Rfam assigns this 97-nucleotide RNA from Magnetovibrio blakemorei to the family "TPP riboswitch aptamer (THI element)". The match comes from Rfam's covariance-model search (69 bits). Lineage of the source: Bacteria > Alphaproteobacteria > Rhodospirillales > Magnetovibrionaceae > Magnetovibrio. The base pairs follow the family's consensus structure, which is taken from published work.

[Rfam]
RNA sequence: ACUUGAUCCGAGGGGCGGCCCCUGUAUUUUGGCCUGAGAUGUACCCUUUGAACCUGAUCCAGGUGAUGCUGGCGGAGGGACGGACUUUGGAUUUACC
Numbered sequence: 001a002c003u004u005g006a007u008c009c010g011a012g013g014g015g016c017g018g019c020c021c022c023u024g025u026a027u028u029u030u031g032g033c034c035u036g037a038g039a040u041g042u043a044c045c046c047u048u049u050g051a052a053c054c055u056g057a058u059c060c061a062g063g064u065g066a067u068g069c070u071g072g073c074g075g076a077g078g079g080a081c082g083g084a085c086u087u088u089g090g091a092u093u094u095a096c097c
Stems, first nucleotide, its partner, number of pairs: 007084004011047004016041001017034004053078003059072004